Rfam assigns this 230-nucleotide RNA sequence from Ligilactobacillus ubinensis to the family "T-box leader". Gene Ontology term of the family: tRNA binding.
[Rfam]
RNA sequence: UAAAAAACGGAGACGGAAAUUAGUAGGUAGGGCGUUGAUACAGAGAGAAGUCAGUUACUGGAAAGACUUUAUCAAUAAGCUAUUGAAUUUCACUUCCUGAGUUGCUGCUACGAGAUUUUAAGUUAAGUUGCAGAUCGGUUUCAUGCCCGUUAGAUGCAUGACUAAGAGUUAUUGAUAAAGUGUAUAUUAUCAAUAAAACAAGGGUGGUACCGCGAUGCCUCGUCCCUUUU
Numbered sequence: 001u002a003a004a005a006a007a008c009g010g011a012g013a014c015g016g017a018a019a020u021u022a023g024u025a026g027g028u029a030g031g032g033c034g035u036u037g038a039u040a041c042a043g044a045g046a047g048a049a050g051u052c053a054g055u056u057a058c059u060g061g062a063a064a065g066a067c068u069u070u071a072u073c074a075a076u077a078a079g080c081u082a083u084u085g086a087a088u089u090u091c092a093c094u095u096c097c098u099g100a101g102u103u104g105c106u107g108c109u110a111c112g113a114g115a116u117u118u119u120a121a122g123u124u125a126a127g128u129u130g131c132a133g134a135u136c137g138g139u140u141u142c143a144u145g146c147c148c149g150u151u152a153g154a155u156g157c158a159u160g161a162c163u164a165a166g167a168g169u170u171a172u173u174g175a176u177a178a179a180g181u182g183u184a185u186a187u188u189a190u191c192a193a194u195a196a197a198a199c200a201a202g203g204g205u206g207g208u209a210c211c212g213c214g215a216u217g218c219c220u221c222g223u224c225c226c227u228u229u230u
Stems, first nucleotide, its partner, number of pairs: 007102002015097004026084005037073003047070006105133004110128002136149003169196010201227004212223004

By type it is a cis-regulatory leader. The source organism's lineage runs through Bacteria, Bacillati, Bacilli, Lactobacillales and Ligilactobacillus. Rfam describes the family as follows. Uncharged tRNA acts as the effector for transcription antitermination of genes in the T-box leader family. T-boxes are found upstream of many aminoacyl-tRNA synthetase genes and some amino acid biosynthetic genes usually in Gram-positive bacteria. The anticodon of a specific tRNA base pairs to a specifier sequence within the T-box motif, and the NCCA acceptor tail of the tRNA base pairs to a conserved bulge in the T-box antiterminator hairpin.